[Rfam]
RNA sequence: AGGUAUCUGAGUAUAUGGGGAUGAUCGUCCGACAUUCAACGUCACAGAGGCGAGAAAAGCAAAAGGGGAAACAUUUUCCCCUUUUUUAAGAUGA
Numbered sequence: 001a002g003g004u005a006u007c008u009g010a011g012u013a014u015a016u017g018g019g020g021a022u023g024a025u026c027g028u029c030c031g032a033c034a035u036u037c038a039a040c041g042u043c044a045c046a047g048a049g050g051c052g053a054g055a056a057a058a059g060c061a062a063a064a065g066g067g068g069a070a071a072c073a074u075u076u077u078c079c080c081c082u083u084u085u086u087u088a089a090g091a092u093g094a
Stems, first nucleotide, its partner, number of pairs: 008038001010036003016032001018030003061085011